The record is a 174-nucleotide RNA from Lachnospiraceae bacterium 9_1_43BFAA, which matches "Lysine riboswitch aptamer" in Rfam. Taxonomically the source falls in Lachnospiraceae (Bacteria, Bacillati, Bacillota, Lachnospirales). The family's consensus secondary structure is taken from published work.
RNA sequence: ACAAGAGAUAGAGGUGCAAGGAUUAUCAGUACGGUACAUGAGAACACGGUGGACGACCGAUGUACCGGAAAGGAUGAAUUGCCGAAGAACUGUUCUUUCGUCCGGGGAGCAGGAUCUGGGUCACUGCAGAAUAUGCAGUGGACUGUCACAGACAUGUGGAGUGCUAUCGUUGGC
Numbered sequence: 001a002c003a004a005g006a007g008a009u010a011g012a013g014g015u016g017c018a019a020g021g022a023u024u025a026u027c028a029g030u031a032c033g034g035u036a037c038a039u040g041a042g043a044a045c046a047c048g049g050u051g052g053a054c055g056a057c058c059g060a061u062g063u064a065c066c067g068g069a070a071a072g073g074a075u076g077a078a079u080u081g082c083c084g085a086a087g088a089a090c091u092g093u094u095c096u097u098u099c100g101u102c103c104g105g106g107g108a109g110c111a112g113g114a115u116c117u118g119g120g121u122c123a124c125u126g127c128a129g130a131a132u133a134u135g136c137a138g139u140g141g142a143c144u145g146u147c148a149c150a151g152a153c154a155u156g157u158g159g160a161g162u163g164c165u166a167u168c169g170u171u172g173g174c
Stems, first nucleotide, its partner, number of pairs: 007168005016082004024074001032067008086117003090112008118144002121141008146159005